[Rfam]
RNA: Bacterial RNase P class A
Organism: Oceanicella actignis
RNA sequence: GCGGAUGGCCGGGCGGCCGCGGCGCGCGGCUGGACCGCGCGGCGAGGAAAGUCCGGGCUCCACGAAGACGCGGCGCCGGAUAACGUCCGGCCGGGGAAACCCGAGGGAAAGCGCCACAGAGAACAGACCUCCGUUCCGGGUUCGUCCCGGGGCGGGAAGGGUGAAACGGUGGAGUAAGAGCCCACCGCGCCCCCGGCGACGGGGGCGGCACGGCAAGCCCCGCCGGGAGCAAGGUCAAGUUGCGAGGGAGGCGGCCUUCGGGCCGCCGAUGGGUCGUCUUCGCCCUCCCUCCGUGGUGGACCGCGAGAACGCCCGGGCGACCGGGCGUCCAGAUGAAUGGCCGCCCAGGGGCCGCAAGGCCCUGGACAGAACCCGGCUUACAGGCCAUCCGCACGC
Numbered sequence: 001g002c003g004g005a006u007g008g009c010c011g012g013g014c015g016g017c018c019g020c021g022g023c024g025c026g027c028g029g030c031u032g033g034a035c036c037g038c039g040c041g042g043c044g045a046g047g048a049a050a051g052u053c054c055g056g057g058c059u060c061c062a063c064g065a066a067g068a069c070g071c072g073g074c075g076c077c078g079g080a081u082a083a084c085g086u087c088c089g090g091c092c093g094g095g096g097a098a099a100c101c102c103g104a105g106g107g108a109a110a111g112c113g114c115c116a117c118a119g120a121g122a123a124c125a126g127a128c129c130u131c132c133g134u135u136c137c138g139g140g141u142u143c144g145u146c147c148c149g150g151g152g153c154g155g156g157a158a159g160g161g162u163g164a165a166a167c168g169g170u171g172g173a174g175u176a177a178g179a180g181c182c183c184a185c186c187g188c189g190c191c192c193c194c195g196g197c198g199a200c201g202g203g204g205g206c207g208g209c210a211c212g213g214c215a216a217g218c219c220c221c222g223c224c225g226g227g228a229g230c231a232a233g234g235u236c237a238a239g240u241u242g243c244g245a246g247g248g249a250g251g252c253g254g255c256c257u258u259c260g261g262g263c264c265g266c267c268g269a270u271g272g273g274u275c276g277u278c279u280u281c282g283c284c285c286u287c288c289c290u291c292c293g294u295g296g297u298g299g300a301c302c303g304c305g306a307g308a309a310c311g312c313c314c315g316g317g318c319g320a321c322c323g324g325g326c327g328u329c330c331a332g333a334u335g336a337a338u339g340g341c342c343g344c345c346c347a348g349g350g351g352c353c354g355c356a357a358g359g360c361c362c363u364g365g366a367c368a369g370a371a372c373c374c375g376g377c378u379u380a381c382a383g384g385c386c387a388u389c390c391g392c393a394c395g396c
Base pairs, nucleotide, nucleotide: 001392002391003390004389005388006387007386008385009384010383011381012345013344014343015342016341017340018339020044021043023041024040025039026038027037028036049379050378051377053376054375055374056373057372058229059228060227061226066280067279071225072224073223074222075221076090077089078088079087080086091105092103093102094101095100106220107219111218112217113214114213115212128160129159130156131155132154133153134152135151136150137149138148139147140146168186169185170184171183172182187209188207189206190205191204192203193202194201195200233302234301235300236299243293244292246290247289248288271285272284273283274282309328310327311326312325313324314323315322316321
Dot-bracket structure: ((((((((((((((((((.((.((((((.......)))))).))....[[[.[[[[[((((....[[...((((((((((.....)))))(((((....)))).)((...(((((............(((((((((((((.....)))))))))))..)).......(((((.........)))))(((((((((....)))))))).)..)))..)))))))))))))...((((......((.(((......................((((....]].))))..))).)).....))))......((((((((....))))))))..........)))))))..........................]]]]]]]].).))))))))))....